[Rfam]
The family of this 164-nucleotide RNA sequence from Propithecus coquereli is "U1 spliceosomal RNA". It is annotated as a spliceosomal small nuclear RNA. A search with the family's covariance model found it, with a score of 98 bits. Pairs were carried over by alignment from the consensus structure, which is taken from published work. Taxonomically the source falls in Propithecus (Eukaryota, Metazoa, Eumetazoa, Strepsirrhini).
RNA sequence: UUCUAUACCUGUCAGGGGAGGUACAAUGAUCAUGAAGGUGGUUUUCUCAGAGUGAGGCUUAUUCAUUGCAUUCUGGAUGUGUUGACCCCUACAAUUUCUCUAAAUGGGGGAAACUAAACUGCGUAAUUUGUGGUACUAGGGGACUGUGUUCAUGCUUUCCCCUG
Numbered sequence: 001u002u003c004u005a006u007a008c009c010u011g012u013c014a015g016g017g018g019a020g021g022u023a024c025a026a027u028g029a030u031c032a033u034g035a036a037g038g039u040g041g042u043u044u045u046c047u048c049a050g051a052g053u054g055a056g057g058c059u060u061a062u063u064c065a066u067u068g069c070a071u072u073c074u075g076g077a078u079g080u081g082u083u084g085a086c087c088c089c090u091a092c093a094a095u096u097u098c099u100c101u102a103a104a105u106g107g108g109g110g111a112a113a114c115u116a117a118a119c120u121g122c123g124u125a126a127u128u129u130g131u132g133g134u135a136c137u138a139g140g141g142g143a144c145u146g147u148g149u150u151c152a153u154g155c156u157u158u159c160c161c162c163u164g
Stems, first nucleotide, its partner, number of pairs: 013121003016048006023042002026039002049090002052087001054086001056083003060079005094115001095113001096111002099109002138163006146155003